[Rfam]
RNA sequence: AGUAAGGAUAGAGGUGCAAAUUCCAAGAGUACGCAUGUGAAGGAGAAUGAGAUCCUGUGAAACAUGAGGAAAGGGGUUUUUGCCGAAGCUGACGGAAGCUCAUAUUCCCGAUGCUGGUUCUGAUGCUUAAGAGGUGCAGGACUGUCAUAUAGGAGACUAUAUGGAGGGCUAUCUUAAUG
Numbered sequence: 001a002g003u004a005a006g007g008a009u010a011g012a013g014g015u016g017c018a019a020a021u022u023c024c025a026a027g028a029g030u031a032c033g034c035a036u037g038u039g040a041a042g043g044a045g046a047a048u049g050a051g052a053u054c055c056u057g058u059g060a061a062a063c064a065u066g067a068g069g070a071a072a073g074g075g076g077u078u079u080u081u082g083c084c085g086a087a088g089c090u091g092a093c094g095g096a097a098g099c100u101c102a103u104a105u106u107c108c109c110g111a112u113g114c115u116g117g118u119u120c121u122g123a124u125g126c127u128u129a130a131g132a133g134g135u136g137c138a139g140g141a142c143u144g145u146c147a148u149a150u151a152g153g154a155g156a157c158u159a160u161a162u163g164g165a166g167g168g169c170u171a172u173c174u175u176a177a178u179g
Base pairs, nucleotide, nucleotide: 006174007173008172009171010170011169016083017082018081019080020079023076024075032068034066035065036064037063038062087115088114089113094108095107096106097105116143117142118141119140120139121138122137124136125135126134127133145164146163147162148161149160150159151158
RNA: Lysine riboswitch aptamer
Organism: Halobacillus halophilus